[Rfam]
RNA sequence: CGCGUUUUUCGCCCAGGCGGAACUCGACCGCCGCCUGAAGUCCUGAACGCGUUCGUGGACGAGCACCGCCAGCGCCUGGGGGUCGAGUCGAUCUGCCGCACCCUGCAGAUCGCCCCU
Numbered sequence: 001c002g003c004g005u006u007u008u009u010c011g012c013c014c015a016g017g018c019g020g021a022a023c024u025c026g027a028c029c030g031c032c033g034c035c036u037g038a039a040g041u042c043c044u045g046a047a048c049g050c051g052u053u054c055g056u057g058g059a060c061g062a063g064c065a066c067c068g069c070c071a072g073c074g075c076c077u078g079g080g081g082g083u084c085g086a087g088u089c090g091a092u093c094u095g096c097c098g099c100a101c102c103c104u105g106c107a108g109a110u111c112g113c114c115c116c117u
Stems, first nucleotide, its partner, number of pairs: 016032005078117005089112002092109005098103001
Dot-bracket structure: ...............(((((.......))))).............................................(((((......((.(((((.(....).))))).)))))))
RNA: ALIL pseudoknot
Organism: Caldimonas caldifontis